[Rfam]
RNA: DUF3800-VIII RNA
RNA sequence: CCCCCUCUGCUUUGUCGAAGCCCUGCGAACCUCGCGGGGUAUAUGUAGGCAAAGUGGAGGGGG
Numbered sequence: 001c002c003c004c005c006u007c008u009g010c011u012u013u014g015u016c017g018a019a020g021c022c023c024u025g026c027g028a029a030c031c032u033c034g035c036g037g038g039g040u041a042u043a044u045g046u047a048g049g050c051a052a053a054g055u056g057g058a059g060g061g062g063g
Stems, first nucleotide, its partner, number of pairs: 001063016020040009